[Rfam]
RNA: Small nucleolar RNA SNORA31
Organism: Camelus ferus
RNA sequence: AUGCAUCAAUUUGCCAGGCCUGGAGCACAUACUAUCUGCUGCUAAGGUUUCCACCACAGAUGCAAGAAAAAAGUAUCCUUGGACUUUCUGUCUGACUGUGAAAGCCUAGAUUGAAUGGGGGAAUACAGGG
Numbered sequence: 001a002u003g004c005a006u007c008a009a010u011u012u013g014c015c016a017g018g019c020c021u022g023g024a025g026c027a028c029a030u031a032c033u034a035u036c037u038g039c040u041g042c043u044a045a046g047g048u049u050u051c052c053a054c055c056a057c058a059g060a061u062g063c064a065a066g067a068a069a070a071a072a073g074u075a076u077c078c079u080u081g082g083a084c085u086u087u088c089u090g091u092c093u094g095a096c097u098g099u100g101a102a103a104g105c106c107u108a109g110a111u112u113g114a115a116u117g118g119g120g121g122a123a124u125a126c127a128g129g130g
Stems, first nucleotide, its partner, number of pairs: 002064006012053002016050005024040004029035001076122005084113001087110004092104002096100001